[Rfam]
RNA sequence: GGCCUCUCUCUGCUGGGCGAUCGAUUGUGGGGCUCCGCGAUCAUCGCCCAGCAGAGGGAGGCC
Numbered sequence: 001g002g003c004c005u006c007u008c009u010c011u012g013c014u015g016g017g018c019g020a021u022c023g024a025u026u027g028u029g030g031g032g033c034u035c036c037g038c039g040a041u042c043a044u045c046g047c048c049c050a051g052c053a054g055a056g057g058g059a060g061g062c063c
Base pairs, nucleotide, nucleotide: 001063002062003061004060005059006058007057008056009055010054011053012052013051014050015049016048017047018046019045020044021043023042024041025040026039027038028037029036030035
A member of the RNA family "mir-9242 microRNA precursor family" from Cnephaeus nilssonii, 63 nucleotides long. The source organism's lineage runs through Eukaryota, Deuterostomia, Sarcopterygii, Laurasiatheria and Cnephaeus. The base pairs follow the family's consensus structure, which was predicted with RNAalifold.